[Rfam]
Nucleotides: 157
Base pairs, nucleotide, nucleotide: 009136010135011134012133013132015128016127017126019034020033021032022031023030035109036108037107043101044100045099049095050094051093052092054091055090056089057088058087061084062083069079070078071077111124112123113122114121115120
Number, partner (000 for none) and nucleotide at each position: 001000g002000a003000a004000a005000a006000c007000u008000c009136a010135c011134c012133g013132c014000a015128a016127c017126g018000a019034a020033a021032c022031g023030a024000a025000a026000c027000a028000g029000a030023u031022c032021g033020u034019u035109c036108a037107g038000a039000a040000a041000c042000a043101c044100u045099a046000g047000a048000c049095c050094a051093u052092g053000a054091g055090g056089g057088c058087u059000c060000c061084c062083c063000u064000a065000u066000a067000g068000u069079c070078c071077c072000g073000c074000u075000g076000a077071g078070g079069g080000u081000g082000c083062g084061g085000c086000a087058g088057g089056c090055c091054c092052c093051g094050u095049g096000c097000g098000a099045u100044a101043g102000g103000c104000u105000a106000a107037c108036u109035g110000u111124g112123g113122u114121g115120u116000u117000c118000c119000c120115g121114c122113a123112c124111u125000c126017c127016g128015u129000c130000g131000a132013g133012c134011g135010g136009u137000u138000a139000a140000u141000a142000c143000g144000a145000c146000g147000c148000u149000u150000a151000c152000c153000a154000a155000g156000a157000c
A member of the RNA family "Bamboo mosaic virus satellite RNA cis-regulatory element" from Bamboo mosaic virus satellite RNA, 157 nucleotides long. The sequence is in the family's curated seed alignment. The literature on the family includes a 2003 paper in Virology by Annamalai et al., "Structural and mutational analyses of cis-acting sequences in the 5'-untranslated region of satellite RNA of bamboo mosaic potexvirus". Pairs were carried over by alignment from the consensus structure, which is taken from published work. Taxonomically the source falls in Large single stranded RNA satellites (Viruses, RNA satellites, Single stranded RNA satellites). About the family: This family represents a cis-regulatory element found in the 5' UTR of bamboo mosaic virus satellite RNA (satBaMV). The family is thought to be essential for efficient replication.